Record summary:
This 92-nucleotide RNA from Sapajus apella belongs to the Rfam family "Y RNA". NCBI's taxonomy places the organism under Eukaryota, Gnathostomata, Primates, Haplorrhini, Sapajus. The family's consensus secondary structure is taken from published work. The literature on the family includes a 2000 paper in Nucleic Acids Res by Teunissen et al., "Conserved features of Y RNAs: a comparison of experimentally derived secondary structures". It scores 49 bits against the family's covariance model. About the family: Y RNAs are components of the Ro ribonucleoprotein particle (Ro RNP), in association with Ro60 and La proteins. The Y RNAs and Ro60 and La proteins are well conserved, but the function of the Ro RNP is not known. In humans the RNA component can be one of four small RNAs -- hY1, hY3, hY4 and hY5. These small RNAs are predicted to fold into a conserved secondary structure containing three stem structures.
[Rfam]
Nucleotides: 092
Base pairs, nucleotide, nucleotide: 001088002087003086006085007084010081012076013075014074015073016072018071027059028058029057031055032054
Number, partner (000 for none) and nucleotide at each position: 001088g002087g003086u004000c005000c006085a007084a008000g009000u010081g011000c012076a013075g014074u015073g016072g017000u018071g019000a020000c021000a022000u023000a024000a025000c026000u027059a028058a029057u030000u031055g032054a033000u034000c035000a036000c037000a038000a039000c040000c041000a042000g043000u044000u045000a046000c047000a048000g049000a050000u051000u052000u053000c054032u055031c056000u057029g058028u059027u060000c061000u062000u063000u064000c065000u066000c067000c068000a069000c070000u071018c072016c073015c074014a075013c076012u077000g078000c079000u080000u081010c082000a083000c084007u085006u086003a087002c088001c089000u090000u091000a092000u